[Rfam]
RNA sequence: CUCCAGUGAUGAUCUCUUGUUAGUGCCACAGUGUCUGGGCCACUGAACUCUUGUGAUGGAGAUGAGGUACUGAGGGG
Numbered sequence: 001c002u003c004c005a006g007u008g009a010u011g012a013u014c015u016c017u018u019g020u021u022a023g024u025g026c027c028a029c030a031g032u033g034u035c036u037g038g039g040c041c042a043c044u045g046a047a048c049u050c051u052u053g054u055g056a057u058g059g060a061g062a063u064g065a066g067g068u069a070c071u072g073a074g075g076g077g
Stems, first nucleotide, its partner, number of pairs: 001077004

Shown here is a 77-nucleotide RNA from Lepisosteus oculatus, a member of the family "Small nucleolar RNA SNORD66". The match comes from Rfam's covariance-model search (80 bits). The literature on the family includes a 2001 paper in EMBO J by Huttenhofer et al., "RNomics: an experimental approach that identifies 201 candidates for novel, small, non-messenger RNAs in mouse". snoRNA HBII-142 is part of the C/D family of snoRNAs. It is the human orthologue of the mouse MBII-142 snoRNA and is predicted to guide 2'O-ribose methylation of small 18S rRNA at residue C1272. Rfam links the family to the GO terms nucleolus and RNA processing. The organism belongs to Lepisosteus, within Eukaryota. The family's RNA type in Rfam is C/D-box small nucleolar RNA. The family's consensus secondary structure was predicted with RNAalifold. The family has 20 seed sequences and 1,346 matches in Rfam 15.1.